About this RNA
This 75-nucleotide RNA from Anopheles gambiae belongs to the Rfam family "mir-957 microRNA precursor family".
RNA sequence: CGUGCGUUAGUUUUGGGCGGGUUUUAGUGUAUUUCGAUGAGAAUUCUAUUGAAACCGUCCAAAACUGAGGCUGGC
Numbered sequence: 001c002g003u004g005c006g007u008u009a010g011u012u013u014u015g016g017g018c019g020g021g022u023u024u025u026a027g028u029g030u031a032u033u034u035c036g037a038u039g040a041g042a043a044u045u046c047u048a049u050u051g052a053a054a055c056c057g058u059c060c061a062a063a064a065c066u067g068a069g070g071c072u073g074g075c
Stems, first nucleotide, its partner, number of pairs: 005070001007068008016059004021055008